[Rfam]
RNA sequence: CUUGCCCCUUGAGACGUAACUUUGGCUCCAAAGCCACUGUUGUGCUAUGAAAGGGCAAACAGUAAAUGGCUCACGAUAGCCUGACUGCCCUGUUCAGUGGGCAUCAGGUACGGAACCGAGCCAGAUAGA
Numbered sequence: 001c002u003u004g005c006c007c008c009u010u011g012a013g014a015c016g017u018a019a020c021u022u023u024g025g026c027u028c029c030a031a032a033g034c035c036a037c038u039g040u041u042g043u044g045c046u047a048u049g050a051a052a053g054g055g056c057a058a059a060c061a062g063u064a065a066a067u068g069g070c071u072c073a074c075g076a077u078a079g080c081c082u083g084a085c086u087g088c089c090c091u092g093u094u095c096a097g098u099g100g101g102c103a104u105c106a107g108g109u110a111c112g113g114a115a116c117c118g119a120g121c122c123a124g125a126u127a128g129a
Stems, first nucleotide, its partner, number of pairs: 002058005009050003013046001015044005023036004065126001067123006080108004086103005